RNA sequence: CUCUUAUAAAGAGAGGCUGAGGGAAGUGCCCUAUGAAGCCCGGCAACCGUCACAAUUUGUGAAAUGGUGCCAAAUCACUCAAAGCGAAUUUGCUUUGAAAGAUGAGAG
Numbered sequence: 001c002u003c004u005u006a007u008a009a010a011g012a013g014a015g016g017c018u019g020a021g022g023g024a025a026g027u028g029c030c031c032u033a034u035g036a037a038g039c040c041c042g043g044c045a046a047c048c049g050u051c052a053c054a055a056u057u058u059g060u061g062a063a064a065u066g067g068u069g070c071c072a073a074a075u076c077a078c079u080c081a082a083a084g085c086g087a088a089u090u091u092g093c094u095u096u097g098a099a100a101g102a103u104g105a106g107a108g
Stems, first nucleotide, its partner, number of pairs: 001108007013041001015040003021031003025079004042071004047067002050062003075100001080097006
Rfam assigns this 108-nucleotide RNA sequence from Paenisporosarcina sp. HGH0030 to the family "SAM riboswitch aptamer (S box leader)". The match comes from Rfam's covariance-model search (91 bits).